[Rfam]
RNA sequence: UAUUAGGUUGGCGCAAAAGUAAUUAAGGUCUUUGUCAUUGAAAGUAAUGACAAAGACCUCAAUUACUUUUGCGCCAACCUAAUA
Numbered sequence: 001u002a003u004u005a006g007g008u009u010g011g012c013g014c015a016a017a018a019g020u021a022a023u024u025a026a027g028g029u030c031u032u033u034g035u036c037a038u039u040g041a042a043a044g045u046a047a048u049g050a051c052a053a054a055g056a057c058c059u060c061a062a063u064u065a066c067u068u069u070u071g072c073g074c075c076a077a078c079c080u081a082a083u084a
Base pairs, nucleotide, nucleotide: 001084002083003082004081005080006079007078008077009076010075011074012073013072014071015070016069017068018067019066020065021064022063023062024061026059027058028057029056030055031054032053033052034051035050036049037048038047039046040045
Dot-bracket structure: ((((((((((((((((((((((((.(((((((((((((((....))))))))))))))).))))))))))))))))))))))))
A member of the RNA family "mir-548 microRNA precursor family" from Rhinopithecus roxellana, 84 nucleotides long. For this family Rfam cites "Ultra-high throughput sequencing-based small RNA discovery and discrete statistical biomarker analysis in a collection of cervical tumours and matched controls" (Witten et al., BMC Biol, 2010). The match comes from Rfam's covariance-model search (100 bits).